Rfam assigns this 70-nucleotide RNA from Diachasma alloeum to the family "mir-8/mir-141/mir-200 microRNA precursor family". Rfam 15.1 lists 2,669 matches to the family in 883 species. The match comes from Rfam's covariance-model search (69 bits). The literature on the family includes a 2001 paper in Science by Lagos-Quintana et al., "Identification of novel genes coding for small expressed RNAs".
RNA sequence: GUUCACAUCUUACCGGGCAGCAUUAGACUUACUUUUGAAUUUUCUAAUACUGUCAGGUAAAGAUGUCGUC
Number, nucleotide and partner (000 for none) at each position: 001g000002u000003u068004c000005a066006c065007a064008u063009c062010u060011u059012a058013c057014c056015g000016g054017g053018c052019a051020g050021c000022a048023u047024u046025a045026g044027a043028c000029u000030u000031a000032c000033u000034u000035u000036u000037g000038a000039a000040u000041u000042u000043u027044c026045u025046a024047a023048u022049a000050c020051u019052g018053u017054c016055a000056g014057g013058u012059a011060a010061a000062g009063a008064u007065g006066u005067c000068g003069u000070c000
The base pairs follow the family's consensus structure, which was predicted with RNAalifold.